[Rfam]
RNA sequence: UUAUCGAAAAGAGGUCGCAGACUUUAAGAGUAAGAUGGCUUAGUCAGAAAAAGGACGGAGGUCAUGUGAAAGGAAAGUACUGCCGAAGUUGACAAUGUUUUUUCGCGUUGUUAGCUGGGAUCUAGUAUAAGAUACUAGGAACUGUCGUGGGGAAUACCCUACGGGGCGCUAUCGAGAUG
Dot-bracket structure: .......(.((.....((((.((((.......(.((((((...................)))))).)......))))..))))...((((((((((((......))))))))))))((..(((((((.....)))))))..)).(((((((......)))))))....)).).......
Rfam assigns this 179-nucleotide RNA from Ligilactobacillus pobuzihii to the family "Lysine riboswitch aptamer". Pairs were carried over by alignment from the consensus structure, which is taken from published work.